[Rfam]
The record is a 45-nucleotide RNA sequence from Propioniciclava flava, which matches "Guanidine-II riboswitch aptamer (mini-ykkC)" in Rfam.
Simpler in structure and has fewer highly conserved nucleotide positions than the ykkC-yxkD leader.
Pairs were carried over by alignment from the consensus structure, which is taken from published work.
The organism belongs to Propioniciclava, within Bacteria.
Rfam 15.1 lists 1,589 matches to the family in 1,229 species.
The match comes from Rfam's covariance-model search (35 bits).
Its family is annotated with regulation of gene expression in the Gene Ontology.
RNA sequence: GCGCCGGGACGACCCGGCGUGGCAUGCCAGGGCAGGGACGACCCC
Numbered sequence: 001g002c003g004c005c006g007g008g009a010c011g012a013c014c015c016g017g018c019g020u021g022g023c024a025u026g027c028c029a030g031g032g033c034a035g036g037g038a039c040g041a042c043c044c045c
Stems, first nucleotide, its partner, number of pairs: 001020008035044003